[Rfam]
RNA: Bacterial large signal recognition particle RNA
Organism: Jeotgalicoccus saudimassiliensis
RNA sequence: CCGUGCUAAGCGGGGAGGUAGCGGUGCCCUGUACUUGCAAUCCGCUCCAGCAAGGCUGAAUUCCACUUUUGAGGAUUUGAAGUGUGAGGACUGCCUCGGGAGUUCCGGUGUUGAGACUGCGGUCCUAUGCAAUAGAACGUCAUGAAUCAUGUCAGGUCCGGAAGGAAGCAGCAUUAAGUGGCCCAUUCUAUGUGCCGUAGGGUUGCCGUGGUUGAGCUGGUCUCCCGAGUAACGCUUGUUCAUCAUAUUCGAUUAAGUGGUGCACGG
Dot-bracket structure: ((((((..(((((((.(.(...).).))))...(((((...........)))))))).....((((((....((((..((.(.(((((...((..((((((...(.(((.....(((((((((((((((((.(((((.(((((.....((((....(((....)))....))))...)))))...)))))))...))))))...)))))))))..))).)..)))))).))...))))).).))..))))....)))))).))))))